[Rfam]
Rfam assigns this 36-nucleotide RNA from Deminuibacter soli to the family "DUF805b RNA". Clan: DUF805 clan. By type it is a cis-regulatory element. The base pairs follow the family's consensus structure, which is taken from published work. The organism belongs to Deminuibacter, within Bacteria.
RNA sequence: ACUGGCGAAGCCGAAAACCAGCUAACAGAGUAGGCG
Numbered sequence: 001a002c003u004g005g006c007g008a009a010g011c012c013g014a015a016a017a018c019c020a021g022c023u024a025a026c027a028g029a030g031u032a033g034g035c036g
Base pairs, nucleotide, nucleotide: 002021003020004019005018010035011034012033